[Rfam]
About this RNA
A member of the RNA family "c-di-AMP riboswitch aptamer (ydaO/yuaA leader)" from Clostridium manihotivorum, 122 nucleotides long. Taxonomically the source falls in Clostridium (Bacteria, Bacillota, Clostridia, Eubacteriales). Its family is annotated with regulation of gene expression and cyclic-di-AMP binding in the Gene Ontology. The match comes from Rfam's covariance-model search (94 bits). From the family's description: This family represents a conserved RNA structure found upstream of the ydaO and yuaA genes in Bacillus subtilis and related genes in other bacteria.
RNA sequence: AAACUAUAAAAGCCUAAUGCUUUUGCAGCGGAGGAUAUAUACUUGGGGUGAAUCAUAUUUAUGUAGGGAAAUCCUCUUCCCGAACCCGUCAACUAACUUCGCAGGCUCAAAGGAGGAAAAAC
Numbered sequence: 001a002a003a004c005u006a007u008a009a010a011a012g013c014c015u016a017a018u019g020c021u022u023u024u025g026c027a028g029c030g031g032a033g034g035a036u037a038u039a040u041a042c043u044u045g046g047g048g049u050g051a052a053u054c055a056u057a058u059u060u061a062u063g064u065a066g067g068g069a070a071a072u073c074c075u076c077u078u079c080c081c082g083a084a085c086c087c088g089u090c091a092a093c094u095a096a097c098u099u100c101g102c103a104g105g106c107u108c109a110a111a112g113g114a115g116g117a118a119a120a121a122c
Base pairs, nucleotide, nucleotide: 011107012106013105014104018027019026020025028102029101030100031099032098033097038045039044046087047086048085054063055062056061066081067080068079069078